Shown here is a 60-nucleotide RNA from Sphingobium xenophagum, a member of the family "nhaA-I RNA".
The sequence is in the family's curated seed alignment.
Lineage of the source: Bacteria > Pseudomonadota > Alphaproteobacteria > Sphingobium > Sphingobium xenophagum.
Acidobacteria, Alphaproteobacteria, Betaproteobacteria and Gammaproteobacteria, Verrucomicrobia, cand. division NC10.
RNA sequence: GGGUGUUCGUUUUCCAUAUGCAGGUGCGGGCAGGUAUUCACGCUGGUCGGGCCGCCAGCG
Numbered sequence: 001g002g003g004u005g006u007u008c009g010u011u012u013u014c015c016a017u018a019u020g021c022a023g024g025u026g027c028g029g030g031c032a033g034g035u036a037u038u039c040a041c042g043c044u045g046g047u048c049g050g051g052c053c054g055c056c057a058g059c060g
Stems, first nucleotide, its partner, number of pairs: 005031006041060007